A member of the RNA family "Archaeal large subunit ribosomal RNA" from Halodesulfurarchaeum formicicum, 451 nucleotides of a longer RNA. The base pairs follow the family's consensus structure, which is taken from published work. The source organism's lineage runs through Archaea, Methanobacteriati, Methanobacteriota, Halobacteriaceae and Halodesulfurarchaeum. It scores 2823 bits against the family's covariance model. The literature on the family includes a 2001 paper in Science by Yusupov et al., "Crystal structure of the ribosome at 5.5 A resolution".
[Rfam]
RNA sequence: CCAACCGAAACAUGUCGAAGCAUGACCUCUGCCGAGGUAGUUCGUGGGGUAGAGCGACCGAUUGCGGAGACCGCCUCCGAGAGGAGUCGGCUCCGCUGUCAAACUCCAAACCUACGGACGCUGUCGACGCAGGGAGUCCGGUCUGCGGGGUAAGCCUGUGGACCGUGAGGGAGACAACCCAGAGCUGGGUUAAGGUCCCCAAGUGCAGGCUAAGUGUAAGAUCAAAGGUGGUCCCGAGCCACAGACAGCCGGGAGGUGAGCUUAGAAGCAGCUACCCUCCAAGGAAAGCGUAACAGCUCACCGGCCGAGGUUCGGGGCGCCCAAAAUGAUCGGGGCUCAAGUCUGCCACCGAGACCUAGCCACGGAGUUCACACUCCGAUUGCGUAGGUUGGCACUCUGUUCGGGCGGAAGUACGGGCGAGAGCUCGCAUGGACCGAAUAGAGAAGAAGAU
Dot-bracket structure: ((((((....(((((....))))).(((((((...(((.((((((((....(((.....(((.((((((...(.((((....)))).)..)))))).)))...)).)....)))))))))))......)))))).)...(((((((((.......)))))))))....(((......)))...(((((((...(((......(.((((((................(((.((((((((((.......(((((.(((..(((.........)))..)))(...)(...((......)).).)))))...)))))))))))))...................))))))))))...)))))))(((((((......)))))..))....))))))(.((((((((((......((.(((((....))))).))...))))))))))..).....